[Rfam]
RNA sequence: CUAUAUAACAAAGCGCCAGAACUUAAGUGAGUCUCUGAAUCUUUGAUUCAGUCAGACGAACUUACUCAGCGAACGGAUGUGAGUCGAGCAAGUGAAAGUCUCUGAAUCUUCGAUUCAGUUAGACGAACUUACUCAGCGAGUGAAUGAGAGUGGAACAAUUGGUUCUCUGAAUCUUUGGCUCAGUCAGUUAAAUUUACUCGGUGAGUAAAUAUAAGUGGAUUUUCUUUAUUGGAAACACACGCUUAAGUUGACGAGGACAGGGAGAAUCGAAAUUUCGGCGGAUGCCCUGCGGUAUGGUACUACCGGAAACCUAGUGAAAAGCAAAAAGCGAUUUUUGGUACAAACUCUAGGAGGUACCUAA
Numbered sequence: 001c002u003a004u005a006u007a008a009c010a011a012a013g014c015g016c017c018a019g020a021a022c023u024u025a026a027g028u029g030a031g032u033c034u035c036u037g038a039a040u041c042u043u044u045g046a047u048u049c050a051g052u053c054a055g056a057c058g059a060a061c062u063u064a065c066u067c068a069g070c071g072a073a074c075g076g077a078u079g080u081g082a083g084u085c086g087a088g089c090a091a092g093u094g095a096a097a098g099u100c101u102c103u104g105a106a107u108c109u110u111c112g113a114u115u116c117a118g119u120u121a122g123a124c125g126a127a128c129u130u131a132c133u134c135a136g137c138g139a140g141u142g143a144a145u146g147a148g149a150g151u152g153g154a155a156c157a158a159u160u161g162g163u164u165c166u167c168u169g170a171a172u173c174u175u176u177g178g179c180u181c182a183g184u185c186a187g188u189u190a191a192a193u194u195u196a197c198u199c200g201g202u203g204a205g206u207a208a209a210u211a212u213a214a215g216u217g218g219a220u221u222u223u224c225u226u227u228a229u230u231g232g233a234a235a236c237a238c239a240c241g242c243u244u245a246a247g248u249u250g251a252c253g254a255g256g257a258c259a260g261g262g263a264g265a266a267u268c269g270a271a272a273u274u275u276c277g278g279c280g281g282a283u284g285c286c287c288u289g290c291g292g293u294a295u296g297g298u299a300c301u302a303c304c305g306g307a308a309a310c311c312u313a314g315u316g317a318a319a320a321g322c323a324a325a326a327a328g329c330g331a332u333u334u335u336u337g338g339u340a341c342a343a344a345c346u347c348u349a350g351g352a353g354g355u356a357c358c359u360a361a
Base pairs, nucleotide, nucleotide: 020249021248022247023246024245025244026243027242029240258289259288260287261286262285267278268277269276270275290305291304292303293302294301310351311350312349313348314347322337323336324335325334326333327332
Dot-bracket structure: ...................((((((((.(..................................................................................................................................................................................................................).))))))))........(((((....((((....))))......)))))(((((......)))))....(((((.......((((((....)))))).........)))))..........